A member of the RNA family "U7 small nuclear RNA" from Tupaia belangeri, 62 nucleotides long. A search with the family's covariance model found it, with a score of 52 bits. Animal histone pre-mRNAs are spliced by a different mechanism than nuclear pre-mRNAs and self-splicing introns. This processing involves the U7 snRNP, which contains only one RNA species: U7. NCBI's taxonomy places the organism under Eukaryota, Vertebrata, Teleostomi, Tupaia, Tupaia belangeri.
RNA sequence: AAGUGUUACAGCUCUUUUAGAAUUUGUUUAGCAGGUUUUUCCAUUUUUACCAGAAAGUCCAA
Numbered sequence: 001a002a003g004u005g006u007u008a009c010a011g012c013u014c015u016u017u018u019a020g021a022a023u024u025u026g027u028u029u030a031g032c033a034g035g036u037u038u039u040u041c042c043a044u045u046u047u048u049a050c051c052a053g054a055a056a057g058u059c060c061a062a
Stems, first nucleotide, its partner, number of pairs: 034059007044049001